[Rfam]
RNA sequence: ACGCACGAUAGAGGCGCGAGUGCGAUGAGCUGCGGAGGAGCCGGCAGGCUGCGAUUCCGCGGGGAGGCAAGCUCGCCGAAUUCGGGCGCCGGGCGCGGCGUUCCGGGUGGGCCUGCGGGAAACACCUGCAGGACUGUCUGCGGGGAGGCUGCAGGUGCGCUAUCUUGCUG
Numbered sequence: 001a002c003g004c005a006c007g008a009u010a011g012a013g014g015c016g017c018g019a020g021u022g023c024g025a026u027g028a029g030c031u032g033c034g035g036a037g038g039a040g041c042c043g044g045c046a047g048g049c050u051g052c053g054a055u056u057c058c059g060c061g062g063g064g065a066g067g068c069a070a071g072c073u074c075g076c077c078g079a080a081u082u083c084g085g086g087c088g089c090c091g092g093g094c095g096c097g098g099c100g101u102u103c104c105g106g107g108u109g110g111g112c113c114u115g116c117g118g119g120a121a122a123c124a125c126c127u128g129c130a131g132g133a134c135u136g137u138c139u140g141c142g143g144g145g146a147g148g149c150u151g152c153a154g155g156u157g158c159g160c161u162a163u164c165u166u167g168c169u170g
Stems, first nucleotide, its partner, number of pairs: 007164005016076006024068001030062008080108006086101006109135002112132008137155007
RNA: Lysine riboswitch aptamer
Organism: Slackia equolifaciens